[Rfam]
This 99-nucleotide sequence from Caloramator sp. E03 belongs to the Rfam family "SAM riboswitch aptamer (S box leader)". The source organism's lineage runs through Bacteria, Bacillati, Bacillota, Clostridiaceae and Caloramator. Gene Ontology term of the family: regulation of gene expression. Rfam 15.1 lists 9,625 matches to the family in 4,158 species. The family's consensus secondary structure is taken from published work.

RNA sequence: CUCUUAUCAAGAGAGGCGGAGGGACUGGCCCUAUGAAGCCCGGCAACCAGCAUUAUGCAUGGUGCCAAUUCCAGCGGUAGAAAUACCGAGAGAUGAGAG
Number, nucleotide and partner (000 for none) at each position: 001c099002u098003c097004u096005u095006a094007u093008c092009a000010a000011g000012a000013g041014a000015g040016g039017c038018g000019g000020a000021g031022g030023g029024a000025c074026u073027g072028g071029c023030c022031c021032u000033a000034u000035g000036a000037a000038g017039c016040c015041c013042g066043g065044c064045a063046a000047c062048c061049a000050g058051c057052a056053u000054u000055a000056u052057g051058c050059a000060u000061g048062g047063u045064g044065c043066c042067a000068a000069u000070u091071c028072c027073a026074g025075c088076g087077g086078u085079a084080g000081a000082a000083a000084u079085a078086c077087c076088g075089a000090g000091a070092g008093a007094u006095g005096a004097g003098a002099g001